[Rfam]
Rfam assigns this 66-nucleotide RNA from Cricetulus griseus to the family "mir-290 microRNA precursor family".
RNA sequence: GUGAUGCUCAAAACCUGGUGGCACUUUAUUCCAGAACAAAAAGUGCCACCGUAGUUUGAGUACCAC
Numbered sequence: 001g002u003g004a005u006g007c008u009c010a011a012a013a014c015c016u017g018g019u020g021g022c023a024c025u026u027u028a029u030u031c032c033a034g035a036a037c038a039a040a041a042a043g044u045g046c047c048a049c050c051g052u053a054g055u056u057u058g059a060g061u062a063c064c065a066c
Stems, first nucleotide, its partner, number of pairs: 005062008016051012
On this family, see Houbaviy et al., Dev Cell 2003: "Embryonic stem cell-specific MicroRNAs". Its family is annotated with miRNA-mediated post-transcriptional gene silencing and RISC complex in the Gene Ontology.